[Rfam]
RNA: RT-9 RNA
RNA sequence: GAUAGAUGAGAUUAAGGUUUCAUUUAACAGUAUAUUACUCUAAGCGAAAGCAAUUCCUUCACGAAAGUGUAAAUAUAUUAACAAUG
Numbered sequence: 001g002a003u004a005g006a007u008g009a010g011a012u013u014a015a016g017g018u019u020u021c022a023u024u025u026a027a028c029a030g031u032a033u034a035u036u037a038c039u040c041u042a043a044g045c046g047a048a049a050g051c052a053a054u055u056c057c058u059u060c061a062c063g064a065a066a067g068u069g070u071a072a073a074u075a076u077a078u079u080a081a082c083a084a085u086g
Stems, first nucleotide, its partner, number of pairs: 003026010060069003